[Rfam]
RNA sequence: UUUAUUUUUUGCCAAACAUUUUGUGAGGUGGGGACGGAAAGCUUCAGGUCUCAUUAAUGAUGAUGAGAUAGCUGAGUUGCAUAU
Numbered sequence: 001u002u003u004a005u006u007u008u009u010u011g012c013c014a015a016a017c018a019u020u021u022u023g024u025g026a027g028g029u030g031g032g033g034a035c036g037g038a039a040a041g042c043u044u045c046a047g048g049u050c051u052c053a054u055u056a057a058u059g060a061u062g063a064u065g066a067g068a069u070a071g072c073u074g075a076g077u078u079g080c081a082u083a084u
Base pairs, nucleotide, nucleotide: 012037013036017032019030021028022027040078041077042076043075045074046073047072048069049068050067051063052062053061054060
RNA: c-di-GMP-I riboswitch aptamer